[Rfam]
RNA: RNase MRP
Organism: Mycena indigotica
RNA sequence: GCGUCGCUCGAAGAAUCGUUGUCGCAGCAUCCGCACAGAGAGACUUGAACUCUCUUCUUUCGCUGUGGGGAAAGUCCCCGGAGACACGGAGCAUAUUCUGGGUGCUUACGGAAAGCGACCGGCCCUAAGCACGUCGGUGUCGCCCAGAAUGGUGGGCAGGCUUUGUAAGGCUGUUCCCCUGGAUCUGGCCUUACUCCCUCCCAACCCCUCUGUUGCCCGACCAGAGCAUCGAGCGCGGCAAAAAGGUGCAAGCUGCGAAGAUAUGAGCAGCUUGUUACUCGUGUUUGGUGCUCGAUGUCGGGCAGGUUUACUCAUAGAGACAGAUAUACGAUUGUCGACGCCUUUUACGGCGUCUUCAACUCAAUGGGGCUCACUCUCGUUCGACG
Numbered sequence: 001g002c003g004u005c006g007c008u009c010g011a012a013g014a015a016u017c018g019u020u021g022u023c024g025c026a027g028c029a030u031c032c033g034c035a036c037a038g039a040g041a042g043a044c045u046u047g048a049a050c051u052c053u054c055u056u057c058u059u060u061c062g063c064u065g066u067g068g069g070g071a072a073a074g075u076c077c078c079c080g081g082a083g084a085c086a087c088g089g090a091g092c093a094u095a096u097u098c099u100g101g102g103u104g105c106u107u108a109c110g111g112a113a114a115g116c117g118a119c120c121g122g123c124c125c126u127a128a129g130c131a132c133g134u135c136g137g138u139g140u141c142g143c144c145c146a147g148a149a150u151g152g153u154g155g156g157c158a159g160g161c162u163u164u165g166u167a168a169g170g171c172u173g174u175u176c177c178c179c180u181g182g183a184u185c186u187g188g189c190c191u192u193a194c195u196c197c198c199u200c201c202c203a204a205c206c207c208c209u210c211u212g213u214u215g216c217c218c219g220a221c222c223a224g225a226g227c228a229u230c231g232a233g234c235g236c237g238g239c240a241a242a243a244a245g246g247u248g249c250a251a252g253c254u255g256c257g258a259a260g261a262u263a264u265g266a267g268c269a270g271c272u273u274g275u276u277a278c279u280c281g282u283g284u285u286u287g288g289u290g291c292u293c294g295a296u297g298u299c300g301g302g303c304a305g306g307u308u309u310a311c312u313c314a315u316a317g318a319g320a321c322a323g324a325u326a327u328a329c330g331a332u333u334g335u336c337g338a339c340g341c342c343u344u345u346u347a348c349g350g351c352g353u354c355u356u357c358a359a360c361u362c363a364a365u366g367g368g369g370c371u372c373a374c375u376c377u378c379g380u381u382c383g384a385c386g
Stems, first nucleotide, its partner, number of pairs: 002386005009379003014333006022068007038054005073371002076369004110116001194306002200302003204298002209295002212292001217288004271281001274278001337354006